[Rfam]
RNA: U7 small nuclear RNA
Organism: Pan troglodytes
RNA sequence: AAGUGUUCCAGCUCUUUCAGAAUUUGUCUAGCAUGUUUUCUGGUUUUCAUUAGAAAACCCCA
Numbered sequence: 001a002a003g004u005g006u007u008c009c010a011g012c013u014c015u016u017u018c019a020g021a022a023u024u025u026g027u028c029u030a031g032c033a034u035g036u037u038u039u040c041u042g043g044u045u046u047u048c049a050u051u052a053g054a055a056a057a058c059c060c061c062a
Stems, first nucleotide, its partner, number of pairs: 035058010
Dot-bracket structure: ..................................((((((((((....))))))))))....